Shown here is a 102-nucleotide sequence from Bacillus sp. 1NLA3E, a member of the family "SAM riboswitch aptamer (S box leader)".
[Rfam]
RNA sequence: UUCUUAUCAAGAGAGGUUGAGGGACUGGCCCUAUGACACCUCGGCAGCGGAGCUUUACUGAUUCUGUGCCAAAUCCAGCAAGUAAAACUUGAGAGAUAAGAA
Numbered sequence: 001u002u003c004u005u006a007u008c009a010a011g012a013g014a015g016g017u018u019g020a021g022g023g024a025c026u027g028g029c030c031c032u033a034u035g036a037c038a039c040c041u042c043g044g045c046a047g048c049g050g051a052g053c054u055u056u057a058c059u060g061a062u063u064c065u066g067u068g069c070c071a072a073a074u075c076c077a078g079c080a081a082g083u084a085a086a087a088c089u090u091g092a093g094a095g096a097u098a099a100g101a102a
Base pairs, nucleotide, nucleotide: 001102002101003100004099005098006097007096008095013042014041015040016039017038021031022030023029025078026077027076028075043070044069045068046067048066049065050064051063052062074094079091080090081089082088083087